[Rfam]
RNA: tRNA
Organism: Nocardioides marmorisolisilvae
RNA sequence: GCCCUGGUAUCCCAAUCGGCAGAGGAAGCGGUCUUAAAAACCGUUCAGUGUGGGUUCGACCCCCACCCGGGGCA
Numbered sequence: 001g002c003c004c005u006g007g008u009a010u011c012c013c014a015a016u017c018g019g020c021a022g023a024g025g026a027a028g029c030g031g032u033c034u035u036a037a038a039a040a041c042c043g044u045u046c047a048g049u050g051u052g053g054g055u056u057c058g059a060c061c062c063c064c065a066c067c068c069g070g071g072g073c074a
Base pairs, nucleotide, nucleotide: 001073002072003071004070005069006068007067010026011025012024028044029043030042031041032040050066051065052064053063054062